The record is a 133-nucleotide sequence from Loxodonta africana, which matches "Small nucleolar RNA SNORA30/SNORA37 family" in Rfam. About the family: The members of this family belong to the H/ACA class of snoRNAs that guide the sites of modification of uridines to pseudouridines. This family includes human ACA30 (SNORA30), ACA37 (SNORA37) and the mouse homolog MBI-26. Gene Ontology terms of the family: nucleolus and RNA processing. Taxonomically the source falls in Loxodonta (Eukaryota, Gnathostomata, Teleostomi, Tetrapoda). It is annotated as an H/ACA-box small nucleolar RNA.

[Rfam]
RNA sequence: CCAGCACUUUUCACAGGUCCUCCCCUAGGCUGUGGGGCCAGGAUUUGGUAGCUGGUGCUGAGAGAAAACCCUUGGUUGCAUCCUUGCCCUGGCACUAUGCCAGUGGCAGCUGUUGCUAACGAAAGAGACAGUU
Dot-bracket structure: ..((((((.....(((.((((.((((.......))))..)))).)))......)))))).........(.(((.(.((.((..(((((((((.......)))).)))))..))...)).).)).).)......